[Rfam]
RNA sequence: AAAUGAUAAAGGCAAACCUAUUGAAAGAUAGGGACGCAAAGCCACGGGUCUAAGGUUCCGCAGGAAUGAAGAUAGCCGGGUUACCGAA
Numbered sequence: 001a002a003a004u005g006a007u008a009a010a011g012g013c014a015a016a017c018c019u020a021u022u023g024a025a026a027g028a029u030a031g032g033g034a035c036g037c038a039a040a041g042c043c044a045c046g047g048g049u050c051u052a053a054g055g056u057u058c059c060g061c062a063g064g065a066a067u068g069a070a071g072a073u074a075g076c077c078g079g080g081u082u083a084c085c086g087a088a
Stems, first nucleotide, its partner, number of pairs: 012037002017032006040082004045078003048073003055067004
A member of the RNA family "c-di-GMP-I riboswitch aptamer" from Aneurinibacillus migulanus, 88 nucleotides long.
GEMM was predicted in a large-scale screen for bacterial structured RNA regulatory elements. Genes associated with GEMM are involved in a diverse array of functions, including chemotaxis regulation, signal transduction, secretion and chitin.
Taxonomically the source falls in Aneurinibacillus (Bacteria, Bacillati, Bacillota, Paenibacillaceae).